[Rfam]
RNA sequence: CUAUCGCUACAACGGCUUCCUGAAGUGGCGAUUUAAUCUUACUGGAGCG
Number, nucleotide and partner (000 for none) at each position: 001c000002u000003a000004u031005c030006g029007c028008u027009a026010c025011a000012a000013c022014g021015g048016c047017u046018u000019c045020c044021u014022g013023a000024a000025g010026u009027g008028g007029c006030g005031a004032u000033u000034u000035a000036a000037u000038c000039u000040u000041a000042c000043u000044g020045g019046a017047g016048c015049g000
RNA: SAM/SAH riboswitch aptamer